[Rfam]
RNA sequence: UGGGUCUGGGUUGAGUGACGGCCUGUUUCUUUCUAACCCUAUUUGAGAAUGGCGUAGGCGCCGUGCUUUUGCUCCCCGCUCGCUGUUUUUCUCGCUGGCUUUCAGCGCGCGGAAAAGCCUCGGCCUACCGCCGUCCACCGUCCGAUCUAGAACAAACAAAAAAUGUCAGCGACUGGUCAAGUCACCCUUCCCAGGAACCUGUGGAAUUCGCCCGCCCGGCCCCCGCACCCCGCCUAGAGGCCGCGGUCGGCCCGGGACUUCUCCGGAGGUGCCCAAUGCCGCCGCGAAGAGUUGGGCUCUGUCAGCCGCGGGUUCCUUGGGGGCCAAGGGCGAGGCUGUGGCCACAGGGAGAGAAACGGAGCGGGUUCCCGCGCGCGGUGCACUUCCCUGAGCUGUGGGACUUGCAUCCGGGACUGGGCUCGGACAUAC
Number, nucleotide and partner (000 for none) at each position: 001u000002g000003g000004g000005u195006c194007u193008g192009g191010g190011u000012u000013g187014a000015g185016u184017g183018a182019c000020g178021g177022c176023c175024u000025g000026u000027u000028u000029c000030u000031u000032u000033c000034u000035a000036a000037c000038c000039c000040u000041a000042u000043u000044u000045g000046a000047g000048a000049a000050u000051g000052g000053c000054g000055u000056a000057g000058g000059c000060g000061c000062c000063g000064u000065g118066c117067u116068u115069u114070u000071g000072c000073u000074c000075c000076c000077c111078g110079c109080u000081c107082g106083c105084u104085g103086u000087u000088u000089u000090u000091c000092u000093c000094g170095c169096u168097g167098g166099c165100u163101u162102u161103c085104a084105g083106c082107g081108c000109g079110c078111g077112g000113a000114a069115a068116a067117g066118c065119c000120u000121c000122g000123g000124c000125c000126u000127a000128c000129c000130g000131c000132c000133g000134u000135c000136c000137a000138c000139c000140g000141u000142c000143c000144g000145a000146u000147c000148u000149a000150g000151a000152a000153c000154a000155a000156a000157c000158a000159a000160a000161a102162a101163a100164u000165g099166u098167c097168a096169g095170c094171g000172a000173c000174u000175g023176g022177u021178c020179a000180a000181g000182u018183c017184a016185c015186c000187c013188u000189u000190c010191c009192c008193a007194g006195g005196a000197a000198c348199c347200u346201g345202u344203g343204g342205a000206a000207u000208u000209c000210g336211c335212c334213c332214g331215c330216c329217c328218g000219g324220c323221c322222c321223c320224c319225g318226c000227a000228c000229c312230c311231c310232g309233c308234c000235u000236a000237g000238a000239g000240g000241c000242c286243g285244c284245g283246g282247u000248c281249g280250g279251c278252c000253c000254g274255g273256g272257a000258c000259u000260u000261c000262u000263c000264c000265g000266g000267a000268g000269g000270u000271g000272c256273c255274c254275a000276a000277u000278g251279c250280c249281g248282c246283c245284g244285c243286g242287a000288a300289g299290a298291g297292u000293u000294g000295g000296g000297c291298u290299c289300u288301g000302u000303c000304a000305g000306c000307c000308g233309c232310g231311g230312g229313u000314u000315c000316c000317u000318u225319g224320g223321g222322g221323g220324c219325c000326a000327a000328g217329g216330g215331c214332g213333a000334g212335g211336c210337u000338g000339u000340g000341g000342c204343c203344a202345c201346a200347g199348g198349g000350a000351g000352a000353g000354a000355a000356a000357c000358g000359g421360a420361g419362c418363g000364g415365g414366u413367u412368c411369c410370c000371g000372c000373g000374c000375g000376c000377g000378g407379u406380g405381c404382a403383c000384u000385u400386c399387c398388c397389u000390g000391a000392g000393c000394u000395g000396u000397g388398g387399g386400a385401c000402u000403u382404g381405c380406a379407u378408c000409c000410g369411g368412g367413a366414c365415u364416g000417g000418g362419c361420u360421c359422g000423g000424a000425c000426a000427u000428a000429c000
Shown here is a 429-nucleotide RNA from Pteropus vampyrus, a member of the family "Vertebrate telomerase RNA". It is annotated as a non-coding RNA gene. Telomerase is a ribonucleoprotein reverse transcriptase that synthesises telomeric DNA. Telomerase RNAs differ greatly in sequence and structure between vertebrates, ciliates and yeasts, but they share a 5' pseudoknot structure close to the template sequence. A reference for the family is Fragnet et al. (2005), "Comparative functional study of the viral telomerase RNA based on natural mutations", J Biol Chem. The family is grouped with related families in Rfam's "Telomerase clan".